RNA sequence: AGAGUCAGCGUAGGCGGUUGCAGGCUAGCAGCGCUAGUCUGAGGAAAGUCCGGGCUCCCGAAAGACCAGACUUGCUGGGUAACGCCCAGUGCGGGUGACCGUGAGGAGAGUGCCACAGAAACAUACCGCCGAUGGUGCCUAUUCGGCACACAGGUAAGGGUGCAAGGGUGCGGUAAGAGCGCACCAGCAGCAUCGAGAGGUGCUGGCUCGGUAAACCCCGGUCGGGUGCAAGGUCAAGGGGCUAGGUUGGUCUUUUACCGGCCCCGCUGUUAAGAACCGCUUGAGGCGGCUGGUAACAGCCGUCCCAGAUAGAUAACCGCCCCCCUGUUGGGGAACAGAACCCGGCUUAUGUCUGACUCUUUCC
Numbered sequence: 001a002g003a004g005u006c007a008g009c010g011u012a013g014g015c016g017g018u019u020g021c022a023g024g025c026u027a028g029c030a031g032c033g034c035u036a037g038u039c040u041g042a043g044g045a046a047a048g049u050c051c052g053g054g055c056u057c058c059c060g061a062a063a064g065a066c067c068a069g070a071c072u073u074g075c076u077g078g079g080u081a082a083c084g085c086c087c088a089g090u091g092c093g094g095g096u097g098a099c100c101g102u103g104a105g106g107a108g109a110g111u112g113c114c115a116c117a118g119a120a121a122c123a124u125a126c127c128g129c130c131g132a133u134g135g136u137g138c139c140u141a142u143u144c145g146g147c148a149c150a151c152a153g154g155u156a157a158g159g160g161u162g163c164a165a166g167g168g169u170g171c172g173g174u175a176a177g178a179g180c181g182c183a184c185c186a187g188c189a190g191c192a193u194c195g196a197g198a199g200g201u202g203c204u205g206g207c208u209c210g211g212u213a214a215a216c217c218c219c220g221g222u223c224g225g226g227u228g229c230a231a232g233g234u235c236a237a238g239g240g241g242c243u244a245g246g247u248u249g250g251u252c253u254u255u256u257a258c259c260g261g262c263c264c265c266g267c268u269g270u271u272a273a274g275a276a277c278c279g280c281u282u283g284a285g286g287c288g289g290c291u292g293g294u295a296a297c298a299g300c301c302g303u304c305c306c307a308g309a310u311a312g313a314u315a316a317c318c319g320c321c322c323c324c325c326u327g328u329u330g331g332g333g334a335a336c337a338g339a340a341c342c343c344g345g346c347u348u349a350u351g352u353c354u355g356a357c358u359c360u361u362u363c364c
Base pairs, nucleotide, nucleotide: 001360002359003358004357005356006355007354008353012350013321014320015319016318017317018316019315021041022040023039024038025037026036027035028034029033046348047347048346050345051344052343053342054341055228057226058225064256065255069223070222071221073220074219075089076088077087078086079085090104091102092101093100094099105218106217110216111215112212113211114210126159127158128155129154130153133152134151135149136148137147138146167185168184169183170182171181172180187207188205189204190203191202192201193200194199232278233277234276235274241267242266245263246262247261248260249259250258251257285304286303287302288301289300290299291298292297